Rfam assigns this 98-nucleotide RNA sequence from Dendrobium nobile to the family "Small nucleolar RNA snoR99". The match comes from Rfam's covariance-model search (52 bits).

[Rfam]
RNA sequence: AUGCUGCUGGGAUAAUCUAGUCCUAAUAUGAUGCCAUUUGAAUCACUUUGUCAGCUUAAUGAAACUGGUUUAAGUUGAUCAUAUAAGAUGGAAUAUGC
Numbered sequence: 001a002u003g004c005u006g007c008u009g010g011g012a013u014a015a016u017c018u019a020g021u022c023c024u025a026a027u028a029u030g031a032u033g034c035c036a037u038u039u040g041a042a043u044c045a046c047u048u049u050g051u052c053a054g055c056u057u058a059a060u061g062a063a064a065c066u067g068g069u070u071u072a073a074g075u076u077g078a079u080c081a082u083a084u085a086a087g088a089u090g091g092a093a094u095a096u097g098c
Stems, first nucleotide, its partner, number of pairs: 034091005050079008